[Rfam]
RNA sequence: UUUCUUUGAGUGAUGAAACCAAUACGGAUGUACAUAAAUGUAUCCGAGAGCGCAUAAACCUCAUGUGGAUACCUCCGUUGCCUUCCUUCUGACCUCAUUC
Numbered sequence: 001u002u003u004c005u006u007u008g009a010g011u012g013a014u015g016a017a018a019c020c021a022a023u024a025c026g027g028a029u030g031u032a033c034a035u036a037a038a039u040g041u042a043u044c045c046g047a048g049a050g051c052g053c054a055u056a057a058a059c060c061u062c063a064u065g066u067g068g069a070u071a072c073c074u075c076c077g078u079u080g081c082c083u084u085c086c087u088u089c090u091g092a093c094c095u096c097a098u099u100c
Stems, first nucleotide, its partner, number of pairs: 005097001025077004
RNA: Small nucleolar RNA Z13/snr52